[Rfam]
RNA sequence: CCUCCUAUGCCUCUCAACGAUGCACACUUAGGGGGU
Numbered sequence: 001c002c003u004c005c006u007a008u009g010c011c012u013c014u015c016a017a018c019g020a021u022g023c024a025c026a027c028u029u030a031g032g033g034g035g036u
Stems, first nucleotide, its partner, number of pairs: 001035006008024003
A member of the RNA family "abiF RNA" from Flavobacterium fontis, 36 nucleotides long.
Actinobacteria, Bacteroidetes, Clostridia, Proteobacteria, one Clostridia phage.
Pairs were carried over by alignment from the consensus structure, which is taken from published work.
The match comes from Rfam's covariance-model search (39 bits).
Taxonomically the source falls in Flavobacterium (Bacteria, Bacteroidota, Flavobacteriales, Flavobacteriaceae).